This 95-nucleotide RNA from Hibiscus syriacus belongs to the Rfam family "mir-166 microRNA precursor family". Its family is annotated with RISC complex and miRNA-mediated post-transcriptional gene silencing in the Gene Ontology.
Nucleotides: 095
Stems, first nucleotide, its partner, number of pairs: 001095004006090002009087005016080006024072003
Number, partner (000 for none) and nucleotide at each position: 001095g002094u003093u004092g005000a006090g007089g008000a009087g010086a011085a012084u013083g014000u015000c016080g017079u018078c019077u020076g021075g022000u023000u024072c025071g026070a027000g028000a029000u030000c031000a032000u033000u034000c035000a036000u037000u038000u039000c040000g041000a042000a043000g044000g045000g046000u047000c048000u049000c050000a051000c052000g053000a054000u055000u056000c057000g058000u059000u060000u061000c062000a063000a064000a065000u066000g067000a068000u069000c070026u071025c072024g073000g074000a075021c076020c077019a078018g079017g080016c081000u082000u083013c084012a085011u086010u087009c088000c089007c090006c091000c092004u093003a094002a095001c

Record summary
This family represents the plant microRNA (miRNA) precursor mir-166.